[Rfam]
RNA sequence: CUUUGUGGUCUUCCACAGCUUUCUUGAACUGCACUGGCCCUUUGCCAAAGAAGGAAGAAUUAGGGUUAGGGUUGCAGUUCAAUAAAGCUGUGGGAAAUUACAGGGA
Number, nucleotide and partner (000 for none) at each position: 001c000002u000003u103004u102005g101006u100007g099008g000009u000010c000011u000012u000013c093014c092015a091016c000017a089018g088019c087020u086021u085022u084023c000024u082025u081026g080027a079028a000029c077030u076031g075032c074033a073034c000035u000036g000037g000038c000039c000040c000041u000042u000043u000044g000045c000046c000047a000048a000049a000050g000051a000052a000053g000054g000055a000056a000057g000058a000059a000060u000061u000062a000063g000064g000065g000066u000067u000068a000069g000070g000071g000072u000073u033074g032075c031076a030077g029078u000079u027080c026081a025082a024083u000084a022085a021086a020087g019088c018089u017090g000091u015092g014093g013094g000095a000096a000097a000098u000099u007100a006101c005102a004103g003104g000105g000106a000

Rfam assigns this 106-nucleotide RNA from Apostasia shenzhenica to the family "MIR396 microRNA precursor family". A search with the family's covariance model found it, with a score of 81 bits. Lineage of the source: Eukaryota > Streptophytina > Euphyllophyta > Apostasioideae > Apostasia. Rfam links the family to the GO terms miRNA-mediated post-transcriptional gene silencing and RISC complex.